[Rfam]
RNA sequence: UUAAAUAUCGGGCAAAUCUGUCGAAAGGCAGAGACGCAAAGCUAUGGGCCUAAGGCAGAAAUGCUAUGGUUGCCAGGUUGCUUAA
Numbered sequence: 001u002u003a004a005a006u007a008u009c010g011g012g013c014a015a016a017u018c019u020g021u022c023g024a025a026a027g028g029c030a031g032a033g034a035c036g037c038a039a040a041g042c043u044a045u046g047g048g049c050c051u052a053a054g055g056c057a058g059a060a061a062u063g064c065u066a067u068g069g070u071u072g073c074c075a076g077g078u079u080g081c082u083u084a085a
Base pairs, nucleotide, nucleotide: 012037013036017032018031019030020029021028022027040079041078042077043076045075046074047073048070049069050068055064056063057062
Shown here is an 85-nucleotide sequence from Desulforamulus ruminis, a member of the family "c-di-GMP-I riboswitch aptamer". Rfam describes the family as follows. GEMM was predicted in a large-scale screen for bacterial structured RNA regulatory elements. Its family is annotated with cyclic-di-GMP binding in the Gene Ontology. The base pairs follow the family's consensus structure, which is taken from published work.